This 34-nucleotide RNA belongs to the Rfam family "L31-Firmicutes ribosomal protein leader". It is annotated as a cis-regulatory leader. On this family, see Eckert and Weinberg, BMC Microbiol 2020: "Discovery of 20 novel ribosomal leader candidates in bacteria and archaea".
RNA sequence: CUUUGGAUUGAUAAGAUAUCCAAGGCGGAAGGAG
Numbered sequence: 001c002u003u004u005g006g007a008u009u010g011a012u013a014a015g016a017u018a019u020c021c022a023a024g025g026c027g028g029a030a031g032g033a034g
Stems, first nucleotide, its partner, number of pairs: 001025008
The base pairs follow the family's consensus structure, which is taken from published work. Rfam's curators put it in the seed alignment. The family is grouped with related families in Rfam's "Ribosomal Protein L31 Leader clan".